A member of the RNA family "Plastid-psbA-3 3UTR RNA", 57 nucleotides long.
The literature on the family includes a 2023 paper in Plant Commun by Richter et al., "Retrograde signaling in plants: A critical review focusing on the GUN pathway and beyond".
Rfam describes the family as follows. Plastid psbA-3 is a non-coding RNA (ncRNA) present in plastids.
RNA sequence: AAAGGAGCAAUAGCACCCUCUUGAUAGAACAAGAGGAUGAUUAUUGCUCCUUUCUUU
Numbered sequence: 001a002a003a004g005g006a007g008c009a010a011u012a013g014c015a016c017c018c019u020c021u022u023g024a025u026a027g028a029a030c031a032a033g034a035g036g037a038u039g040a041u042u043a044u045u046g047c048u049c050c051u052u053u054c055u056u057u
Stems, first nucleotide, its partner, number of pairs: 001053013014039001018035006